[Rfam]
RNA sequence: UGUCGGGAGUGAGGCUAAUAGAAUACCCUUCGGGGGAAUACGCCCGCCGCCCUAGGACGGUUGAGAGCUCCCGGCAGUCUUCUC
Numbered sequence: 001u002g003u004c005g006g007g008a009g010u011g012a013g014g015c016u017a018a019u020a021g022a023a024u025a026c027c028c029u030u031c032g033g034g035g036g037a038a039u040a041c042g043c044c045c046g047c048c049g050c051c052c053u054a055g056g057a058c059g060g061u062u063g064a065g066a067g068c069u070c071c072c073g074g075c076a077g078u079c080u081u082c083u084c
Base pairs, nucleotide, nucleotide: 001076002075003074004073005072006071007070008069009068013044014043015042016040017039026035027034028033046061047060048059049058